[Rfam]
Nucleotides: 147
Stems, first nucleotide, its partner, number of pairs: 002061007009053001013049005020042003024035003077139005090128002095124003100118004
Number, partner (000 for none) and nucleotide at each position: 001000g002061g003060u004059c005058c006057g007056a008055u009053g010000c011000c012000a013049c014048g015047u016046c017045u018000c019000u020042g021041g022040u023000a024035g025034c026033u027000a028000a029000u030000a031000u032000a033026a034025g035024c036000u037000c038000u039000g040022a041021c042020c043000a044000a045017a046016g047015a048014u049013g050000c051000u052000a053009u054000g055008a056007u057006u058005g059004g060003a061002c062000c063000a064000a065000u066000a067000u068000c069000a070000a071000u072000u073000u074000g075000u076000u077139u078138u079137g080136c081135a082000u083000u084000c085000u086000g087000a088000u089000a090128g091127g092000a093000a094000u095124c096123u097122g098000c099000u100118a101117a102116u103115c104000a105000u106000a107000u108000a109000u110000a111000c112000u113000a114000u115103g116102a117101u118100u119000u120000u121000g122097c123096g124095g125000a126000g127091c128090c129000g130000u131000u132000u133000u134000g135081u136080g137079c138078a139077a140000u141000u142000a143000c144000a145000u146000u147000u

Small nucleolar RNA snoR2/U65: a 147-nucleotide sequence from Cicer arietinum. Its family is annotated with nucleolus and RNA processing in the Gene Ontology. The source organism's lineage runs through Eukaryota, Tracheophyta, eudicotyledons, fabids and Cicer.